[Rfam]
Nucleotides: 080
Stems, first nucleotide, its partner, number of pairs: 003053001007049006015041002017068005026037004059073003
Number, partner (000 for none) and nucleotide at each position: 001000a002000a003053g004000a005000c006000u007049g008048u009047g010046u011045g012044u013000g014000a015041c016040u017068g018067g019066c020065g021064a022000g023000g024000a025000c026037g027036c028035g029034g030000a031000u032000u033000a034029c035028c036027g037026u038000g039000a040016g041015g042000g043000a044012g045011c046010a047009c048008a049007u050000u051000u052000g053003u054000u055000g056000g057000a058000a059073g060072c061071c062000g063000u064021u065020c066019g067018c068017c069000u070000g071061g072060g073059c074000a075000g076000a077000g078000g079000u080000a
ZMP/ZTP riboswitch aptamer (pfl RNA motif): an 80-nucleotide RNA sequence from Bacillus sp. MRMR6. Gene Ontology terms of the family: one-carbon metabolic process and regulation of purine nucleotide biosynthetic process.